[Rfam]
RNA sequence: UUUUAAGUAUAAGUAUGUCUCAUGUAAUAUUCGGGAUGCAUUUAUACUAAAA
Numbered sequence: 001u002u003u004u005a006a007g008u009a010u011a012a013g014u015a016u017g018u019c020u021c022a023u024g025u026a027a028u029a030u031u032c033g034g035g036a037u038g039c040a041u042u043u044a045u046a047c048u049a050a051a052a
Stems, first nucleotide, its partner, number of pairs: 006048007014040001016038001018036004022031001
Dot-bracket structure: .....(((((((.(.(.(((((........).)))).).).)))))))....
A member of the RNA family "mir-1302 microRNA precursor family" from Enhydra lutris, 52 nucleotides long. Pairs were carried over by alignment from the consensus structure, which was predicted with WAR. A reference for the family is Morin et al. (2008), "Application of massively parallel sequencing to microRNA profiling and discovery in human embryonic stem cells", Genome Res. A search with the family's covariance model found it, with a score of 63 bits. Gene Ontology terms of the family: miRNA-mediated post-transcriptional gene silencing and RISC complex. Lineage of the source: Eukaryota > Metazoa > Dipnotetrapodomorpha > Musteloidea > Enhydra lutris.